[Rfam]
RNA sequence: GAUGCUUUGAAGCCACAGCAGAAGUGUUCAUGACGUGGUAAUGUCAGAAUCCAAUGAAUCGGUGACUUCUGCU
Numbered sequence: 001g002a003u004g005c006u007u008u009g010a011a012g013c014c015a016c017a018g019c020a021g022a023a024g025u026g027u028u029c030a031u032g033a034c035g036u037g038g039u040a041a042u043g044u045c046a047g048a049a050u051c052c053a054a055u056g057a058a059u060c061g062g063u064g065a066c067u068u069c070u071g072c073u
Base pairs, nucleotide, nucleotide: 012039013038014037017073018072019071020070021069022068023067024036025035026034045062047060048059050057051056
RNA: Mammalian CPEB3 ribozyme